[Rfam]
RNA sequence: AAAUUAUGAACGCUCCGAAGCUGGCUUCCCUAAGGCAAAUGCUAUGGUAACCAGACAAGUGUCCUGAGACACUCGGGUAUUGCAGGAAACUGUAAUAUCUCCCAUUGGAAAGGAGUCUGUUGACAGGAGGA
Numbered sequence: 001a002a003a004u005u006a007u008g009a010a011c012g013c014u015c016c017g018a019a020g021c022u023g024g025c026u027u028c029c030c031u032a033a034g035g036c037a038a039a040u041g042c043u044a045u046g047g048u049a050a051c052c053a054g055a056c057a058a059g060u061g062u063c064c065u066g067a068g069a070c071a072c073u074c075g076g077g078u079a080u081u082g083c084a085g086g087a088a089a090c091u092g093u094a095a096u097a098u099c100u101c102c103c104a105u106u107g108g109a110a111a112g113g114a115g116u117c118u119g120u121u122g123a124c125a126g127g128a129g130g131a
Base pairs, nucleotide, nucleotide: 004125012117013115014114015113016112021054022053023052024051026050027049029047030046034043035042036041059072060071061070062069063068075100076099077098078097079096080095081094082093083092084091085090101108102107
Dot-bracket structure: ...(.......(((((....((((.((.((...(((....)))..)).))))))....(((((....)))))..(((((((((((....)))))))))))((....))...)))).).......)......